This 81-nucleotide sequence from Scophthalmus maximus belongs to the Rfam family "mir-19 microRNA precursor family". A search with the family's covariance model found it, with a score of 54 bits. For this family Rfam cites "Identification of novel genes coding for small expressed RNAs" (Lagos-Quintana et al., Science, 2001). Rfam 15.1 lists 2,337 matches to the family in 651 species. Taxonomically the source falls in Scophthalmus (Eukaryota, Vertebrata, Eurypterygia, Percomorphaceae). The base pairs follow the family's consensus structure, which was predicted with RNAalifold.
RNA sequence: UUUUACAGCGAGUUUUGUUGGUUUGCCCUCAGCGUCUGUCGGCCCUCUGCUGUGCAAAUCCAUGCAAAGCUCUCUGUUUCC
Numbered sequence: 001u002u003u004u005a006c007a008g009c010g011a012g013u014u015u016u017g018u019u020g021g022u023u024u025g026c027c028c029u030c031a032g033c034g035u036c037u038g039u040c041g042g043c044c045c046u047c048u049g050c051u052g053u054g055c056a057a058a059u060c061c062a063u064g065c066a067a068a069g070c071u072c073u074c075u076g077u078u079u080c081c
Stems, first nucleotide, its partner, number of pairs: 005077004010072009020061002022058005028052001031051003